[Rfam]
RNA sequence: CUGUCUGUUGUCAAUGAUGGAUUCUAUUGAAGAUGAGUAUAACUGAUUUGAGUCAACAUUUCGUCACUACCACUGAGACAGCCGACAG
Numbered sequence: 001c002u003g004u005c006u007g008u009u010g011u012c013a014a015u016g017a018u019g020g021a022u023u024c025u026a027u028u029g030a031a032g033a034u035g036a037g038u039a040u041a042a043c044u045g046a047u048u049u050g051a052g053u054c055a056a057c058a059u060u061u062c063g064u065c066a067c068u069a070c071c072a073c074u075g076a077g078a079c080a081g082c083c084g085a086c087a088g
Stems, first nucleotide, its partner, number of pairs: 001088005007082006